[Rfam]
RNA sequence: UCGGCCGCACACCCUGUAGCUGCCAAGGGGCGUGGUUUAUUCCGCCUCUCGGCUUCUACAUCGUCUGUGAUCGUAU
Number, nucleotide and partner (000 for none) at each position: 001u000002c073003g072004g071005c000006c069007g068008c067009a066010c000011a064012c063013c000014c000015u060016g059017u058018a057019g056020c000021u000022g053023c052024c051025a000026a049027g048028g047029g046030g045031c044032g043033u000034g041035g040036u000037u000038u000039a000040u035041u034042c000043c032044g031045c030046c029047u028048c027049u026050c000051g024052g023053c022054u000055u000056c019057u018058a017059c016060a015061u000062c000063g012064u011065c000066u009067g008068u007069g006070a000071u004072c003073g002074u000075a000076u000
The family of this 76-nucleotide RNA sequence from Operophtera brumata is "mir-2756 microRNA precursor family". The base pairs follow the family's consensus structure, which was predicted with RNAalifold.